Source information
The record is a 508-nucleotide sequence from Pseudenhygromyxa sp. WMMC2535, which matches "Saccharopolyspora sRNA 350" in Rfam. It scores 204 bits against the family's covariance model. By type it is an antisense RNA. NCBI's taxonomy places the organism under Bacteria, Myxococcota, Polyangia, Nannocystaceae, Pseudenhygromyxa.
[Rfam]
RNA sequence: CGCGCGGUGAACUCCCACAGGUCGUUGUCCUCGAGGAUCGCCUCGUAGCUGAAGUGAUCGCCGUCGGCGAGCACGUCGAGCACGCUCUGAUCCCCGUACUUGCCCUCGCCGAUGCGCUCGACCUUGCCGUGGGCGAUCAGGCAGAUCGAGUCGGCGGGCUUGCCCGCCUCGACGAUCACCACGCCGGCCGCGAGGUCCUUUUGCACGAAGCGCGCGGCCAGGGCCGCGAGCGUCUCGACGUCGUCGAAGCCGCGCAGCAUCGGCAGCUCGGCGAGCUCCUGGGGGAUCACCUGGACCUUGGCCCCGACGUUGGUGAAGGUCACGCGGCCGUCACCCACGGCGUAGGACAGCCGGCGGUUGACGCGGUAGACACCGCCCGAGACCUCCACCCAGGGCAGCAGCUUGAGCAGCCACCGCGAGGUGAUGCCCUGCAUCUGCGGCGGGGACUUGGUCGUCGUCGCCAGGUUGCGCGCCGCCGCGGUCGCGAGGCUCAUCUGUUGUUGGGCGG
Numbered sequence: 001c002g003c004g005c006g007g008u009g010a011a012c013u014c015c016c017a018c019a020g021g022u023c024g025u026u027g028u029c030c031u032c033g034a035g036g037a038u039c040g041c042c043u044c045g046u047a048g049c050u051g052a053a054g055u056g057a058u059c060g061c062c063g064u065c066g067g068c069g070a071g072c073a074c075g076u077c078g079a080g081c082a083c084g085c086u087c088u089g090a091u092c093c094c095c096g097u098a099c100u101u102g103c104c105c106u107c108g109c110c111g112a113u114g115c116g117c118u119c120g121a122c123c124u125u126g127c128c129g130u131g132g133g134c135g136a137u138c139a140g141g142c143a144g145a146u147c148g149a150g151u152c153g154g155c156g157g158g159c160u161u162g163c164c165c166g167c168c169u170c171g172a173c174g175a176u177c178a179c180c181a182c183g184c185c186g187g188c189c190g191c192g193a194g195g196u197c198c199u200u201u202u203g204c205a206c207g208a209a210g211c212g213c214g215c216g217g218c219c220a221g222g223g224c225c226g227c228g229a230g231c232g233u234c235u236c237g238a239c240g241u242c243g244u245c246g247a248a249g250c251c252g253c254g255c256a257g258c259a260u261c262g263g264c265a266g267c268u269c270g271g272c273g274a275g276c277u278c279c280u281g282g283g284g285g286a287u288c289a290c291c292u293g294g295a296c297c298u299u300g301g302c303c304c305c306g307a308c309g310u311u312g313g314u315g316a317a318g319g320u321c322a323c324g325c326g327g328c329c330g331u332c333a334c335c336c337a338c339g340g341c342g343u344a345g346g347a348c349a350g351c352c353g354g355c356g357g358u359u360g361a362c363g364c365g366g367u368a369g370a371c372a373c374c375g376c377c378c379g380a381g382a383c384c385u386c387c388a389c390c391c392a393g394g395g396c397a398g399c400a401g402c403u404u405g406a407g408c409a410g411c412c413a414c415c416g417c418g419a420g421g422u423g424a425u426g427c428c429c430u431g432c433a434u435c436u437g438c439g440g441c442g443g444g445g446a447c448u449u450g451g452u453c454g455u456c457g458u459c460g461c462c463a464g465g466u467u468g469c470g471c472g473c474c475g476c477c478g479c480g481g482u483c484g485c486g487a488g489g490c491u492c493a494u495c496u497g498u499u500g501u502u503g504g505g506c507g508g
Stems, first nucleotide, its partner, number of pairs: 006390004011385001015381001021325002025322001027320003031316002037311001039309002042306001045305001048302005054233002058229004063224002065111004075103001077102004082097003117222002120219001122217002126213002130209001131206001133204004139199003143196001150191001153189003157185003161178002165174002235295002240290002243287003250282003254278001256277003260271003329342004351379001353377005391431007399423002403418001407415001437476004442471001444469001446467001447465006477507002480502003484498002487496002
Dot-bracket structure: .....((((.(...(.....((..(.(((.((....(.((.(..(..(((((.((..((((.((((((......(.((((.(((..........))).)))))....)))).....((.(.((..((..((.((((..(((.(......(..(((.(((.((..((......))..))....))).))).)....)))).)))).)..)..))..)).).)))).))))..)).((...((.(((....(((.(.(((.(((......)))...)))).)))..))).))...))..)))))..)).)).)...)).))).).))...((((......))))........(.(((((...............))))).).)...).))))(((((((.((..(...(.......)..)...)).))))))).....((((.(.(.(((((((.......)))))).).).).))))((.(((.((.((......)))).)))...)).